[Rfam]
RNA sequence: CCACUCUGAAAAGUAGGACGUCGCCCCUCGGGCGCCGGUUCCUCGCCCACGGUGAAAGCAGGCAACCGCCCGCGAAGCUCUCAGGCUUAUGACAGAGGGGGA
Number, nucleotide and partner (000 for none) at each position: 001c100002c099003a000004c097005u096006c095007u094008g093009a000010a000011a000012a000013g000014u000015a043016g042017g041018a040019c000020g000021u000022c000023g000024c000025c000026c000027c000028u000029c000030g000031g000032g000033c000034g000035c000036c000037g000038g000039u000040u018041c017042c016043u015044c000045g086046c085047c084048c000049a081050c000051g000052g080053u000054g078055a000056a000057a000058g073059c072060a000061g000062g000063c000064a000065a000066c000067c000068g000069c000070c000071c000072g059073c058074g000075a000076a000077g000078c054079u000080c052081u049082c000083a000084g047085g046086c045087u000088u000089a000090u000091g000092a000093c008094a007095g006096a005097g004098g000099g002100g001101g000102a000
Shown here is a 102-nucleotide RNA from Lysinibacter cavernae, a member of the family "Glycine riboswitch aptamer".
Pairs were carried over by alignment from the consensus structure.
Rfam describes the family as follows. This family represents the bacterial glycine riboswitch.
Gene Ontology term of the family: glycine biosynthetic process.